[Rfam]
RNA: tRNA
RNA sequence: GCCUGGAUGGUGGAAUCGGUAGACACGUGGGACUUAAAAUCCCAUGGUUUAUAGCCGUGUCGGUUCAAGUCCGACUCCAGGUA
Numbered sequence: 001g002c003c004u005g006g007a008u009g010g011u012g013g014a015a016u017c018g019g020u021a022g023a024c025a026c027g028u029g030g031g032a033c034u035u036a037a038a039a040u041c042c043c044a045u046g047g048u049u050u051a052u053a054g055c056c057g058u059g060u061c062g063g064u065u066c067a068a069g070u071c072c073g074a075c076u077c078c079a080g081g082u083a
Base pairs, nucleotide, nucleotide: 001082002081003080004079005078006077007076010026011025012024028044029043030042031041032040059075060074061073062072063071